Description: A member of the RNA family "t44 RNA" from Actinobacillus delphinicola, 86 nucleotides long. The base pairs follow the family's consensus structure, which was predicted with LocARNA. The family's RNA type in Rfam is small RNA.
RNA sequence: UUUUUUUUAACUCUAAAACACACGCAUACCGAGCGGGUAAAACGGGGUGCCAAACGGUCGUUUUACUUGGUAUGUGGAGGCUAAAC
Numbered sequence: 001u002u003u004u005u006u007u008u009a010a011c012u013c014u015a016a017a018a019c020a021c022a023c024g025c026a027u028a029c030c031g032a033g034c035g036g037g038u039a040a041a042a043c044g045g046g047g048u049g050c051c052a053a054a055c056g057g058u059c060g061u062u063u064u065a066c067u068u069g070g071u072a073u074g075u076g077g078a079g080g081c082u083a084a085a086c
Stems, first nucleotide, its partner, number of pairs: 023076008036067009049058003